[Rfam]
Nucleotides: 091
Base pairs, nucleotide, nucleotide: 003053005051006050007049008048009047010046011045012044015041016040017079018078019077020076024037025036026035027034068086069085070084071083072082
Number, partner (000 for none) and nucleotide at each position: 001000c002000c003053c004000a005051c006050g007049c008048a009047c010046g011045g012044c013000g014000a015041c016040u017079g018078g019077c020076g021000c022000g023000c024037g025036g026035g027034g028000a029000a030000g031000c032000g033000a034027c035026c036025c037024c038000g039000g040016g041015g042000g043000a044012g045011c046010c047009g048008u049007g050006c051005g052000c053003g054000g055000c056000a057000g058000a059000c060000c061000a062000c063000a064000c065000g066000a067000g068086a069085c070084g071083c072082c073000g074000c075000c076020c077019g078018c079017c080000u081000g082072g083071g084070c085069g086068u087000c088000a089000c090000g091000g

This 91-nucleotide sequence from Streptomyces sp. adm13(2018) belongs to the Rfam family "ZMP/ZTP riboswitch aptamer (pfl RNA motif)". Pairs were carried over by alignment from the consensus structure, which is taken from published work. The match comes from Rfam's covariance-model search (41 bits). NCBI's taxonomy places the organism under Bacteria, Actinomycetes, Kitasatosporales, Streptomycetaceae, Streptomyces.